About this RNA
Bacterial RNase P class B: a 388-nucleotide RNA sequence from Lacicoccus alkaliphilus.
[Rfam]
RNA sequence: UAUGUCGGAUAAUCGCUAUAUCAUAGAAGAUAUAGAGGAAAGUCCAUGCUCACACGCACCUGAGACGGGCGUAGUGUUCGUGCCUGACGAAACAAUAAGUCAGGGCAGUACGUGAAUAACGGCUGACGGCUGUGAAAUAACCUAAGUUGACGAUAUGGUUAGAUUAGCUGUAAAAGUGCCACAGAGACGAGCUUAUCAUGAAAAUGAUAAGGUGGAACGCGGUAAACCCCUCGAGUGAGCAAUCCAAACAAGGUAGGAGCACUUUCUGACGGGAAUUCAACCUGAUGAGAGAUGCUGCAGAUGCAGUAUAGACAGAUGAUUAUCACCAAUGUGCGAGUGUGACUAGUACACGUCUGUAGCACAGCGGUACAGAACAUGGCUUACAGAC
Dot-bracket structure: ...(((((((((((.((((((........))))))....[[[.[[[[[(((((((((.((......)))))).....(((.(((((((..........))))))(((((............)))).)((..((.....((((...(((...)))..))))......)).......(((((...........((((((((....)))))))).........)))..))))).))))))))...(((..........)))...(((((....................)))))((((((......))))))........))))))).((..(((((........................)))))..)).......]]]]]]]].).)))
Numbered sequence: 001u002a003u004g005u006c007g008g009a010u011a012a013u014c015g016c017u018a019u020a021u022c023a024u025a026g027a028a029g030a031u032a033u034a035g036a037g038g039a040a041a042g043u044c045c046a047u048g049c050u051c052a053c054a055c056g057c058a059c060c061u062g063a064g065a066c067g068g069g070c071g072u073a074g075u076g077u078u079c080g081u082g083c084c085u086g087a088c089g090a091a092a093c094a095a096u097a098a099g100u101c102a103g104g105g106c107a108g109u110a111c112g113u114g115a116a117u118a119a120c121g122g123c124u125g126a127c128g129g130c131u132g133u134g135a136a137a138u139a140a141c142c143u144a145a146g147u148u149g150a151c152g153a154u155a156u157g158g159u160u161a162g163a164u165u166a167g168c169u170g171u172a173a174a175a176g177u178g179c180c181a182c183a184g185a186g187a188c189g190a191g192c193u194u195a196u197c198a199u200g201a202a203a204a205u206g207a208u209a210a211g212g213u214g215g216a217a218c219g220c221g222g223u224a225a226a227c228c229c230c231u232c233g234a235g236u237g238a239g240c241a242a243u244c245c246a247a248a249c250a251a252g253g254u255a256g257g258a259g260c261a262c263u264u265u266c267u268g269a270c271g272g273g274a275a276u277u278c279a280a281c282c283u284g285a286u287g288a289g290a291g292a293u294g295c296u297g298c299a300g301a302u303g304c305a306g307u308a309u310a311g312a313c314a315g316a317u318g319a320u321u322a323u324c325a326c327c328a329a330u331g332u333g334c335g336a337g338u339g340u341g342a343c344u345a346g347u348a349c350a351c352g353u354c355u356g357u358a359g360c361a362c363a364g365c366g367g368u369a370c371a372g373a374a375c376a377u378g379g380c381u382u383a384c385a386g387a388c
Stems, first nucleotide, its partner, number of pairs: 004388003007384001008324007016035006040382003044379005049239005054072004059068002078234003082230001083104006105127001106125004128229002132168002139160004146154003176227002178223003192211008243258003262291005292309006326367002330363005

Background
Pairs were carried over by alignment from the consensus structure, which is taken from published work. Rfam's curators write: Ribonuclease P (RNase P) is a ubiquitous endoribonuclease, found in archaea, bacteria and eukarya as well as chloroplasts and mitochondria. Its best characterised activity is the generation of mature 5'-ends of tRNAs by cleaving the 5'-leader elements of precursor-tRNAs. Cellular RNase Ps are ribonucleoproteins. Rfam classes the family as a ribozyme.